[Rfam]
RNA: Small nucleolar RNA SNORA25
Organism: Dipodomys ordii
RNA sequence: UGGUCAUUUCAAAGACGGCUUGUUGGGUUUCCAAACCAAGAGCUUUUAAUGCUGUGACCAGAGAUAGAAGUUCUCCAUAGCAUGCGAUAGUCACUCAAUAGUAGUGCUAUGUUUUCCAGAGGAGAUGUACUG
Numbered sequence: 001u002g003g004u005c006a007u008u009u010c011a012a013a014g015a016c017g018g019c020u021u022g023u024u025g026g027g028u029u030u031c032c033a034a035a036c037c038a039a040g041a042g043c044u045u046u047u048a049a050u051g052c053u054g055u056g057a058c059c060a061g062a063g064a065u066a067g068a069a070g071u072u073c074u075c076c077a078u079a080g081c082a083u084g085c086g087a088u089a090g091u092c093a094c095u096c097a098a099u100a101g102u103a104g105u106g107c108u109a110u111g112u113u114u115u116c117c118a119g120a121g122g123a124g125a126u127g128u129a130c131u132g
Base pairs, nucleotide, nucleotide: 002059003058004057005056006055007054014047015046017044018043019042020041021040023039026037027036072125073124074123075122076121080117082115087110088109089108090107092106093105094104095103